[Rfam]
RNA sequence: CAAUUUAGUCGACGGGUAAGUAUCCUAUCGGGCUUUUUAGGCUGUCGACCAAUAUUAAUAUAGAGGAGUGCUGUUAAUGGCCCGUAUCGCUGGCAUUAACAUUCCUGAA
Numbered sequence: 001c002a003a004u005u006u007a008g009u010c011g012a013c014g015g016g017u018a019a020g021u022a023u024c025c026u027a028u029c030g031g032g033c034u035u036u037u038u039a040g041g042c043u044g045u046c047g048a049c050c051a052a053u054a055u056u057a058a059u060a061u062a063g064a065g066g067a068g069u070g071c072u073g074u075u076a077a078u079g080g081c082c083c084g085u086a087u088c089g090c091u092g093g094c095a096u097u098a099a100c101a102u103u104c105c106u107g108a109a
Stems, first nucleotide, its partner, number of pairs: 005052002008049006024093002029084004037108003
Alpha operon ribosome binding site: a 109-nucleotide RNA from Salinimonas iocasae. Its family is annotated with ribosome binding in the Gene Ontology. About the family: The bacterial alpha operon ribosome binding site is surrounded by this complex pseudoknotted structure. Translation of the mRNA produces 4 ribosomal protein products, one of which (S4) acts as a translational repressor by binding to the nested pseudoknot region. The mechanism of repression is thought to involve a conformational switch in the pseudoknot region and ribosome entrapment. A reference for the family is Schlax et al. (2001), "Translational repression of the Escherichia coli alpha operon mRNA: importance of an mRNA conformational switch and a ternary entrapment complex", J Biol Chem.